This 115-nucleotide sequence from Novosphingobium flavum belongs to the Rfam family "terC RNA". The family's RNA type in Rfam is cis-regulatory element.

[Rfam]
RNA sequence: UGGGCGGACCGGGCCCCUCUGGCGCGGCGCUUGACCGGCAUCUUGCCUCCCCCCUGUGCAAGAUGCCGGACCCGCCCGUUGUGGCAGGUGCGCCUCGUGAUGUCGGACCGCAUCG
Dot-bracket structure: .....((.((((.........(((.((((.............................................................)))).)))....)))).))......